[Rfam]
RNA sequence: UGAGGCAACUCUGGAAAGACCUGCGCGCAGUCGUGUGCACGCGGGCGCCGAAGGAGAAAAGCCGGGUUGACCGGGUGAAGCUCUCAGGCACAAGCGACAGAGUGGGGAGG
Numbered sequence: 001u002g003a004g005g006c007a008a009c010u011c012u013g014g015a016a017a018g019a020c021c022u023g024c025g026c027g028c029a030g031u032c033g034u035g036u037g038c039a040c041g042c043g044g045g046c047g048c049c050g051a052a053g054g055a056g057a058a059a060a061g062c063c064g065g066g067u068u069g070a071c072c073g074g075g076u077g078a079a080g081c082u083c084u085c086a087g088g089c090a091c092a093a094g095c096g097a098c099a100g101a102g103u104g105g106g107g108a109g110g
Stems, first nucleotide, its partner, number of pairs: 006105001008103006020045006047089003050085002054083003061076002
RNA: Glycine riboswitch aptamer